[Rfam]
A member of the RNA family "porB RNA" from Marmota marmota, 61 nucleotides long. It scores 36 bits against the family's covariance model. It is annotated as a small RNA.
RNA sequence: CAAACAUCCUAUCAGACAUGAAAACUCGGAGUCACGGUGUUAAAUGUAAAACCUAAAUGUC
Numbered sequence: 001c002a003a004a005c006a007u008c009c010u011a012u013c014a015g016a017c018a019u020g021a022a023a024a025c026u027c028g029g030a031g032u033c034a035c036g037g038u039g040u041u042a043a044a045u046g047u048a049a050a051a052c053c054u055a056a057a058u059g060u061c
Stems, first nucleotide, its partner, number of pairs: 023041003027037001029035001